[Rfam]
RNA sequence: UUAGAUUGCAGGUAGAGAUACGCUGUAUACUCGUGUAGUCGAAUUAGCGUUUAAGCGAUAUGUAAUUUCGCCCCCCGCGAGGCCGCCUUUUAUGGGGGGUUUUUUUAUAG
Numbered sequence: 001u002u003a004g005a006u007u008g009c010a011g012g013u014a015g016a017g018a019u020a021c022g023c024u025g026u027a028u029a030c031u032c033g034u035g036u037a038g039u040c041g042a043a044u045u046a047g048c049g050u051u052u053a054a055g056c057g058a059u060a061u062g063u064a065a066u067u068u069c070g071c072c073c074c075c076c077g078c079g080a081g082g083c084c085g086c087c088u089u090u091u092a093u094g095g096g097g098g099g100u101u102u103u104u105u106u107a108u109a110g
Base pairs, nucleotide, nucleotide: 007027008026009025010024011023012021013020014019030081031080032079033078034077035076038075041072042051043050044049055071056070057069058068060066082100083099084098086096087095088094
RNA: DUF3800-I RNA